[Rfam]
RNA sequence: GGAAUUGUUUUCUAAAUUCACACAUAUUUCGACACAUGCUUCGGGGUGCCUUUAAGCUUAAUAUUAGAAAGUAAAAAAGGUCAGGUGCAUGGAAAUAUGGAGGUUUUAAC
Numbered sequence: 001g002g003a004a005u006u007g008u009u010u011u012c013u014a015a016a017u018u019c020a021c022a023c024a025u026a027u028u029u030c031g032a033c034a035c036a037u038g039c040u041u042c043g044g045g046g047u048g049c050c051u052u053u054a055a056g057c058u059u060a061a062u063a064u065u066a067g068a069a070a071g072u073a074a075a076a077a078a079g080g081u082c083a084g085g086u087g088c089a090u091g092g093a094a095a096u097a098u099g100g101a102g103g104u105u106u107u108a109a110c
Stems, first nucleotide, its partner, number of pairs: 023099008035091005040085002043082001048081005
t44 RNA: a 110-nucleotide RNA from Candidatus Photodesmus anomalopis. About the family: This family consists of a number of bacterial RNA genes of between 135 and 170 bases in length. The t44 gene has been identified in several species of enteric bacteria but homologs have also been identified in Pseudomonas and Coxiella species. The t44 gene is found between the map and rpsB genes in all species in the full alignment apart from Shigella flexneri. The function of this RNA is unknown. Rfam classes the family as a small RNA. The source organism's lineage runs through Bacteria, Pseudomonadati, Gammaproteobacteria, Candidatus Photodesmus and Candidatus Photodesmus anomalopis. The base pairs follow the family's consensus structure, which was predicted with LocARNA.